[Rfam]
The record is a 67-nucleotide RNA sequence from Octadecabacter sp. SW4, which matches "L2-Alphaproteobacteria ribosomal protein leader" in Rfam. Taxonomically the source falls in Octadecabacter (Bacteria, Pseudomonadati, Pseudomonadota, Roseobacteraceae). A reference for the family is Eckert and Weinberg (2020), "Discovery of 20 novel ribosomal leader candidates in bacteria and archaea", BMC Microbiol.

RNA sequence: GGGCACCUACGGGGGCCUCUAACAUCAGGGCCUCGCAAGGGGUCCGCCAAGCAAACGGAAGAAGCUA
Numbered sequence: 001g002g003g004c005a006c007c008u009a010c011g012g013g014g015g016c017c018u019c020u021a022a023c024a025u026c027a028g029g030g031c032c033u034c035g036c037a038a039g040g041g042g043u044c045c046g047c048c049a050a051g052c053a054a055a056c057g058g059a060a061g062a063a064g065c066u067a
Stems, first nucleotide, its partner, number of pairs: 001018004006014003028045007